[Rfam]
RNA sequence: GGAAUGUAUGCAUGCAUAAGUCACUUUGGAUAAAAGUGUCUGCUAAAUGGCAUGUU
Numbered sequence: 001g002g003a004a005u006g007u008a009u010g011c012a013u014g015c016a017u018a019a020g021u022c023a024c025u026u027u028g029g030a031u032a033a034a035a036g037u038g039u040c041u042g043c044u045a046a047a048u049g050g051c052a053u054g055u056u
Base pairs, nucleotide, nucleotide: 013045014043017042018041022038023037024036025035026034027033
UnaL2 LINE 3' element: a 56-nucleotide RNA from Oncorhynchus tshawytscha. It is annotated as a cis-regulatory element. Rfam's curators write: The eel long interspersed element (LINE) UnaL2 and its partner short interspersed element (SINE) share a conserved 3' tail containing a stem-loop that is critical for their retrotransposition. Rfam 15.1 lists 493,311 matches to the family in 99 species.